The record is a 198-nucleotide sequence from Clostridium amylolyticum, which matches "T-box leader" in Rfam. Gene Ontology term of the family: tRNA binding. Pairs were carried over by alignment from the consensus structure, which is taken from published work. Rfam describes the family as follows. Uncharged tRNA acts as the effector for transcription antitermination of genes in the T-box leader family. T-boxes are found upstream of many aminoacyl-tRNA synthetase genes and some amino acid biosynthetic genes usually in Gram-positive bacteria. The anticodon of a specific tRNA base pairs to a specifier sequence within the T-box motif, and the NCCA acceptor tail of the tRNA base pairs to a conserved bulge in the T-box antiterminator hairpin.
RNA sequence: CUAAAACCUUUGAAGAGAAUAGUAAUAUGGUUUUAAUUUUAAGAGAGUCAGUGUUAGGUGAAAACUGAUAAUUAAUCCUUAUGAAUCCACCUCUGAGGGACUGCGAUGAGCAGUACGGCUUAAACCGUUAUUUUGUUGAGAGGAUAGCUUUAUCAAGCUAUCAAUUAGGGUGGUAACGCGGAGUCUUUCGUCCCUUUG
Numbered sequence: 001c002u003a004a005a006a007c008c009u010u011u012g013a014a015g016a017g018a019a020u021a022g023u024a025a026u027a028u029g030g031u032u033u034u035a036a037u038u039u040u041a042a043g044a045g046a047g048u049c050a051g052u053g054u055u056a057g058g059u060g061a062a063a064a065c066u067g068a069u070a071a072u073u074a075a076u077c078c079u080u081a082u083g084a085a086u087c088c089a090c091c092u093c094u095g096a097g098g099g100a101c102u103g104c105g106a107u108g109a110g111c112a113g114u115a116c117g118g119c120u121u122a123a124a125c126c127g128u129u130a131u132u133u134u135g136u137u138g139a140g141a142g143g144a145u146a147g148c149u150u151u152a153u154c155a156a157g158c159u160a161u162c163a164a165u166u167a168g169g170g171u172g173g174u175a176a177c178g179c180g181g182a183g184u185c186u187u188u189c190g191u192c193c194c195u196u197u198g
Stems, first nucleotide, its partner, number of pairs: 007098002015093003025082003029078002036072003047069006100114005116127003143162007167195004178191005
The organism belongs to Clostridium, within Bacteria.